Rfam assigns this 57-nucleotide sequence from Capsicum annuum to the family "Plastid-psbA-3 3UTR RNA". The family's consensus secondary structure was predicted with LocARNA. Its Rfam clan is "Plastid-psbA 3UTR RNA clan". Plastid psbA-3 is a non-coding RNA (ncRNA) present in plastids. It was identified in inverted repeat sequences in the 3 prime untranslate region (3UTR) of photosystem II quinone-binding protein (psbA). Rfam classes the family as a cis-regulatory element.
RNA sequence: AAAGGAGCAAUAAUCAUUUUCUUGUUAAACAAGAAAAUGAUUAUUGCUCCUUUCUUU
Number, nucleotide and partner (000 for none) at each position: 001a053002a052003a051004g050005g049006a048007g047008c046009a045010a044011u043012a042013a041014u040015c000016a000017u000018u000019u035020u034021c033022u032023u031024g030025u000026u000027a000028a000029a000030c024031a023032a022033g021034a020035a019036a000037a000038u000039g000040a014041u013042u012043a011044u010045u009046g008047c007048u006049c005050c004051u003052u002053u001054c000055u000056u000057u000